[Rfam]
RNA sequence: CCCAUACCCAUGUGUGUAUGAUCUCAAAGGAUCACCAUUAAAUUUGACACAUAUCUCUAAAAAAGUUACACAUGAAUGUGGGACUUUAUUUUUUUAGAGAUAUGUGCCAAAUUUAAUAGUGAUCCUUUGAGGUCCUACACACAUGGGUGUGGG
Numbered sequence: 001c002c003c004a005u006a007c008c009c010a011u012g013u014g015u016g017u018a019u020g021a022u023c024u025c026a027a028a029g030g031a032u033c034a035c036c037a038u039u040a041a042a043u044u045u046g047a048c049a050c051a052u053a054u055c056u057c058u059a060a061a062a063a064a065g066u067u068a069c070a071c072a073u074g075a076a077u078g079u080g081g082g083a084c085u086u087u088a089u090u091u092u093u094u095u096a097g098a099g100a101u102a103u104g105u106g107c108c109a110a111a112u113u114u115a116a117u118a119g120u121g122a123u124c125c126u127u128u129g130a131g132g133u134c135c136u137a138c139a140c141a142c143a144u145g146g147g148u149g150u151g152g153g
Stems, first nucleotide, its partner, number of pairs: 002152012015139004020134009030124003034120002037117010048106019068086001069080004
Shown here is a 153-nucleotide sequence from Amborella trichopoda, a member of the family "MIR8565 microRNA precursor family". A search with the family's covariance model found it, with a score of 138 bits. The source organism's lineage runs through Eukaryota, Viridiplantae, Embryophyta, Amborellales and Amborella. Gene Ontology terms of the family: RISC complex and miRNA-mediated post-transcriptional gene silencing.